RNA sequence: AAUGGUCCUCGGUAGUGGCUCACGAAAUGCUGAUUCAGAAAAUAAUUUCGUGGACUUCGAUCGAAGAUUCAUU
Numbered sequence: 001a002a003u004g005g006u007c008c009u010c011g012g013u014a015g016u017g018g019c020u021c022a023c024g025a026a027a028u029g030c031u032g033a034u035u036c037a038g039a040a041a042a043u044a045a046u047u048u049c050g051u052g053g054a055c056u057u058c059g060a061u062c063g064a065a066g067a068u069u070c071a072u073u
Base pairs, nucleotide, nucleotide: 001073002072004069005068006067007066009064010063011062012061013060017056018055020053021052022051023050024049025048026047027046028045031044